[Rfam]
RNA sequence: GUUCCCUAUGAUGCUUCAGAUUAAACCAUGCUAAUUCUGAUAAUUACAUGAUCGGAUCUUUCUUUAUUUAUUUGCUGAGGGAAUU
Numbered sequence: 001g002u003u004c005c006c007u008a009u010g011a012u013g014c015u016u017c018a019g020a021u022u023a024a025a026c027c028a029u030g031c032u033a034a035u036u037c038u039g040a041u042a043a044u045u046a047c048a049u050g051a052u053c054g055g056a057u058c059u060u061u062c063u064u065u066a067u068u069u070a071u072u073u074g075c076u077g078a079g080g081g082a083a084u085u
Stems, first nucleotide, its partner, number of pairs: 001084007
RNA: Small nucleolar RNA snoR53Y
Organism: Juglans regia